[Rfam]
This 112-nucleotide sequence from Prolemur simus belongs to the Rfam family "Y RNA". Rfam's curators write: Y RNAs are components of the Ro ribonucleoprotein particle (Ro RNP), in association with Ro60 and La proteins. By type it is a non-coding RNA gene. The match comes from Rfam's covariance-model search (59 bits). NCBI's taxonomy places the organism under Eukaryota, Deuterostomia, Boreoeutheria, Euarchontoglires, Prolemur. Pairs were carried over by alignment from the consensus structure, which is taken from published work.
RNA sequence: GGCUGGUCUAAAGGUAGUGAGUUCUCUCAAUCGUUUGCCUACGGGCAGUUACAGAUAGAACUCCUUGUUCUACUUCUCCUCCCUUCUCAUUACCACGCUAGACUAGUCCUUA
Numbered sequence: 001g002g003c004u005g006g007u008c009u010a011a012a013g014g015u016a017g018u019g020a021g022u023u024c025u026c027u028c029a030a031u032c033g034u035u036u037g038c039c040u041a042c043g044g045g046c047a048g049u050u051a052c053a054g055a056u057a058g059a060a061c062u063c064c065u066u067g068u069u070c071u072a073c074u075u076c077u078c079c080u081c082c083c084u085u086c087u088c089a090u091u092a093c094c095a096c097g098c099u100a101g102a103c104u105a106g107u108c109c110u111u112a
Base pairs, nucleotide, nucleotide: 001108002107003106004105005104006103007102008101011099014096015095016091017090018089019088020087021086043075044074045073047071048070